[Rfam]
RNA: narK RNA
Nucleotides: 071
Stems, first nucleotide, its partner, number of pairs: 030049007
Number, partner (000 for none) and nucleotide at each position: 001000g002000g003000c004000u005000c006000a007000g008000c009000u010000c011000u012000u013000g014000c015000u016000u017000u018000g019000g020000a021000a022000a023000c024000u025000c026000c027000g028000c029000a030049g031048g032047u033046a034045a035044c036043c037000a038000a039000c040000g041000g042000c043036g044035g045034u046033u047032g048031c049030c050000c051000c052000a053000c054000c055000u056000a057000c058000g059000a060000c061000a062000a063000a064000g065000a066000c067000g068000u069000c070000g071000c